[Rfam]
RNA sequence: UGAAUCGGAAUAGCGCCAGACCUGUUAUGAAGAGAAUAGCAGGUGACGAGGAUUGAGUUUAUCGAAAGUUCGGCGGGUGACUCAAGGCAGUGUAGUCUACAAAAUUGUACAAACGUCUUUCGUGAGGAGGGCACAAAAAGCAAUUUACACACCAGA
Numbered sequence: 001u002g003a004a005u006c007g008g009a010a011u012a013g014c015g016c017c018a019g020a021c022c023u024g025u026u027a028u029g030a031a032g033a034g035a036a037u038a039g040c041a042g043g044u045g046a047c048g049a050g051g052a053u054u055g056a057g058u059u060u061a062u063c064g065a066a067a068g069u070u071c072g073g074c075g076g077g078u079g080a081c082u083c084a085a086g087g088c089a090g091u092g093u094a095g096u097c098u099a100c101a102a103a104a105u106u107g108u109a110c111a112a113a114c115g116u117c118u119u120u121c122g123u124g125a126g127g128a129g130g131g132c133a134c135a136a137a138a139a140g141c142a143a144u145u146u147a148c149a150c151a152c153c154a155g156a
Stems, first nucleotide, its partner, number of pairs: 020044009054084005062073004085098004102146007115132007
Dot-bracket structure: ...................(((((((((.......))))))))).........(((((...((((....))))......)))))((((......))))...(((((((......(((((((....))))))).......)))))))..........
glmS glucosamine-6-phosphate activated ribozyme aptamer: a 156-nucleotide RNA sequence from Granulicatella balaenopterae. Pairs were carried over by alignment from the consensus structure, which is taken from published work. Rfam describes the family as follows. This entry contains a glucosamine-6-phosphate activated ribozyme that is found in the mRNA for GlmS. GlmS is an enzyme that uses fructose-6-phosphate and glutamine to generate glucosamine-6-phosphate. The ribozyme catalyses self cleavage of the glmS mRNA that is thought to regulate GlmS activity. The source organism's lineage runs through Bacteria, Bacillota, Lactobacillales, Carnobacteriaceae and Granulicatella.